Rfam assigns this 367-nucleotide RNA from Vibrio cholerae to the family "transfer-messenger RNA". Its family is annotated with RNA catabolic process in the Gene Ontology. The literature on the family includes a 1997 paper in RNA by Felden et al., "Probing the structure of the Escherichia coli 10Sa RNA (tmRNA)". From the family's description: Bacterial tmRNA, also known as 10Sa RNA or SsrA, is named for its dual tRNA and mRNA-like properties. The family's RNA type in Rfam is non-coding RNA gene.

RNA sequence: GGGGCUGAUUCAGGAUUCGACGGGAAUUUUGCAGUCUGAGGUGCAUGCCGAGGUGCGGUAGGCCUCGUUAACAAACCGCAAAAAAAUAGUCGCAAACGACGAAAACUACGCACUAGCAGCUUAAUACCCUGCUCAGAGCCCUUCCUCCCUAGCUUCCGCUUGUAAGACGGGGAAAUCAGGAAGGUCAAACCAAAUCAAGCUGGCGUGGAUUCCCCCACCUGAGGGAUGAAGCGCGAGAUCUAAUUCAGGUUAGCCAUUCGUUAGCGUGUCGGUUCGCAGGCGGUGGUGAAAUUAAAGAUCGACUAAGCAUGUAGUACCAAAGAUGAAUGGUUUUCGGACGGGGGUUCAACUCCCCCCAGCUCCACCA
Numbered sequence: 001g002g003g004g005c006u007g008a009u010u011c012a013g014g015a016u017u018c019g020a021c022g023g024g025a026a027u028u029u030u031g032c033a034g035u036c037u038g039a040g041g042u043g044c045a046u047g048c049c050g051a052g053g054u055g056c057g058g059u060a061g062g063c064c065u066c067g068u069u070a071a072c073a074a075a076c077c078g079c080a081a082a083a084a085a086a087u088a089g090u091c092g093c094a095a096a097c098g099a100c101g102a103a104a105a106c107u108a109c110g111c112a113c114u115a116g117c118a119g120c121u122u123a124a125u126a127c128c129c130u131g132c133u134c135a136g137a138g139c140c141c142u143u144c145c146u147c148c149c150u151a152g153c154u155u156c157c158g159c160u161u162g163u164a165a166g167a168c169g170g171g172g173a174a175a176u177c178a179g180g181a182a183g184g185u186c187a188a189a190c191c192a193a194a195u196c197a198a199g200c201u202g203g204c205g206u207g208g209a210u211u212c213c214c215c216c217a218c219c220u221g222a223g224g225g226a227u228g229a230a231g232c233g234c235g236a237g238a239u240c241u242a243a244u245u246c247a248g249g250u251u252a253g254c255c256a257u258u259c260g261u262u263a264g265c266g267u268g269u270c271g272g273u274u275c276g277c278a279g280g281c282g283g284u285g286g287u288g289a290a291a292u293u294a295a296a297g298a299u300c301g302a303c304u305a306a307g308c309a310u311g312u313a314g315u316a317c318c319a320a321a322g323a324u325g326a327a328u329g330g331u332u333u334u335c336g337g338a339c340g341g342g343g344g345u346u347c348a349a350c351u352c353c354c355c356c357c358a359g360c361u362c363c364a365c366c367a
Base pairs, nucleotide, nucleotide: 001363002362003361004360005359006358007357021336022335023334024333025332026331027330028329030327034324035323036322037321040318041317042316044311045310046309047308048307049067050066051065052064053063054080055079056078057077058076059075113136114135116132117131118130119129140184141183142182143181144180145179147172148171149170150169153166154165155164158200159199160198161197162196203234204233205232206231217250218249219248220247221246222245253287254286255285256284258283259282260281261280262279264277265276266275268303269302270301271300272299273298274297340356341355342354343353344352